[Rfam]
RNA sequence: AUGUUUGAGUAAUCGCUGCAUCUCUUUUGAUGUAGAGGAAAGUCCAUGCUCACACAAGCUGAGAUGCUUGUAGUGUUCGUGCUUGACGAAUUCAUAAGUCAAGGUAACCUUUGGGUUAACGGCAGGGAAAAUACCUAAGUCUUAUAGAUAUGGUAUUACGACCUUGAAAGUGCCACAGUGACGUAGUCAAGUAGGAAACUGCUUGAAUGGAACGAGGUAAACCCCACGAGUGAGCAACCCAAAUAUUGGUAGGGGCAUCCUGGAUUAGGGAAUUCAACCAAAACAGGGACAAGCAUCGUCUUGUAGAUAGAUGAUUACUACUUGCGUACGAGGCUGACCACCGUUUGCAGUGCAAUAGUACAGAACAUGGCUUACAAAA
Numbered sequence: 001a002u003g004u005u006u007g008a009g010u011a012a013u014c015g016c017u018g019c020a021u022c023u024c025u026u027u028u029g030a031u032g033u034a035g036a037g038g039a040a041a042g043u044c045c046a047u048g049c050u051c052a053c054a055c056a057a058g059c060u061g062a063g064a065u066g067c068u069u070g071u072a073g074u075g076u077u078c079g080u081g082c083u084u085g086a087c088g089a090a091u092u093c094a095u096a097a098g099u100c101a102a103g104g105u106a107a108c109c110u111u112u113g114g115g116u117u118a119a120c121g122g123c124a125g126g127g128a129a130a131a132u133a134c135c136u137a138a139g140u141c142u143u144a145u146a147g148a149u150a151u152g153g154u155a156u157u158a159c160g161a162c163c164u165u166g167a168a169a170g171u172g173c174c175a176c177a178g179u180g181a182c183g184u185a186g187u188c189a190a191g192u193a194g195g196a197a198a199c200u201g202c203u204u205g206a207a208u209g210g211a212a213c214g215a216g217g218u219a220a221a222c223c224c225c226a227c228g229a230g231u232g233a234g235c236a237a238c239c240c241a242a243a244u245a246u247u248g249g250u251a252g253g254g255g256c257a258u259c260c261u262g263g264a265u266u267a268g269g270g271a272a273u274u275c276a277a278c279c280a281a282a283a284c285a286g287g288g289a290c291a292a293g294c295a296u297c298g299u300c301u302u303g304u305a306g307a308u309a310g311a312u313g314a315u316u317a318c319u320a321c322u323u324g325c326g327u328a329c330g331a332g333g334c335u336g337a338c339c340a341c342c343g344u345u346u347g348c349a350g351u352g353c354a355a356u357a358g359u360a361c362a363g364a365a366c367a368u369g370g371c372u373u374a375c376a377a378a379a
Base pairs, nucleotide, nucleotide: 004379005378006377007375008319009318010317011316012315013314014313016035017034018033019032020031021030040373041372042371044370045369046368047367048366049234050233051232052231053230054071055070056069057068058067059066077229078228079227080226081225082103083102084101085100086099087098104120105118106117107116108115109114121224122223124164125163126162132155133154134153135152139149140148141147170222171221172218173217174216187206188205189204190203191202192201193200194199238254239253240252258288259287260286261285262284289304290303291302292301293300321358322357326353327352328351329350

Background:
The record is a 379-nucleotide sequence from Aquibacillus halophilus, which matches "Bacterial RNase P class B" in Rfam. Lineage of the source: Bacteria > Bacillota > Bacilli > Bacillaceae > Aquibacillus. Ribonuclease P (RNase P) is a ubiquitous endoribonuclease, found in archaea, bacteria and eukarya as well as chloroplasts and mitochondria. Its family is annotated with dimeric ribonuclease P complex, tRNA processing and ribonuclease P activity in the Gene Ontology. Pairs were carried over by alignment from the consensus structure, which is taken from published work. Rfam classes the family as a ribozyme.